[Rfam]
RNA sequence: CCGGUAGUGUACCCUGUAGCUGCUAAGGGGCGUAGUCUAUAUAACCGCUCCUGUGUCGCUACAUUGUACAUUGCUGGUU
Numbered sequence: 001c002c003g004g005u006a007g008u009g010u011a012c013c014c015u016g017u018a019g020c021u022g023c024u025a026a027g028g029g030g031c032g033u034a035g036u037c038u039a040u041a042u043a044a045c046c047g048c049u050c051c052u053g054u055g056u057c058g059c060u061a062c063a064u065u066g067u068a069c070a071u072u073g074c075u076g077g078u079u
Stems, first nucleotide, its partner, number of pairs: 001077012015063006022056002026052007036043001

The family of this 79-nucleotide RNA sequence from Chrysodeixis includens is "mir-2756 microRNA precursor family". The source organism's lineage runs through Eukaryota, Eumetabola, Neolepidoptera, Noctuoidea and Chrysodeixis. The family's consensus secondary structure was predicted with RNAalifold.